[Rfam]
RNA: TD-1 RNA
Organism: Treponema pedis
RNA sequence: UUUUAACUGCCGAGUUUGCCUUUCGGCAAACGUCGGGAUUGUAUGCCGUUUUUCAAGCUGCGCUUGCAAAACGGCGGAAAAUAAACAAUGCUCGAAAAUUGAUAUUUUCUGCGCUUGUUUAUUUUAUAG
Numbered sequence: 001u002u003u004u005a006a007c008u009g010c011c012g013a014g015u016u017u018g019c020c021u022u023u024c025g026g027c028a029a030a031c032g033u034c035g036g037g038a039u040u041g042u043a044u045g046c047c048g049u050u051u052u053u054c055a056a057g058c059u060g061c062g063c064u065u066g067c068a069a070a071a072c073g074g075c076g077g078a079a080a081a082u083a084a085a086c087a088a089u090g091c092u093c094g095a096a097a098a099u100u101g102a103u104a105u106u107u108u109c110u111g112c113g114c115u116u117g118u119u120u121a122u123u124u125u126a127u128a129g
Stems, first nucleotide, its partner, number of pairs: 012034002014031007045075008080123009090114002094109006